Rfam assigns this 59-nucleotide RNA to the family "Plastid-psbA-3 3UTR RNA". It is one of the family's seed sequences. The family's consensus secondary structure was predicted with LocARNA. On this family, see Richter et al., Plant Commun 2023: "Retrograde signaling in plants: A critical review focusing on the GUN pathway and beyond". From the family's description: Plastid psbA-3 is a non-coding RNA (ncRNA) present in plastids. It was identified in inverted repeat sequences in the 3 prime untranslate region (3UTR) of photosystem II quinone-binding protein (psbA).
[Rfam]
RNA sequence: AAAGGAGCAAUAAUCAUCCUCUUGUUCUAUCAAGAGGGUGCUAUUGCUCCUUUCUUUUU
Numbered sequence: 001a002a003a004g005g006a007g008c009a010a011u012a013a014u015c016a017u018c019c020u021c022u023u024g025u026u027c028u029a030u031c032a033a034g035a036g037g038g039u040g041c042u043a044u045u046g047c048u049c050c051u052u053u054c055u056u057u058u059u
Stems, first nucleotide, its partner, number of pairs: 001053012014040001019036006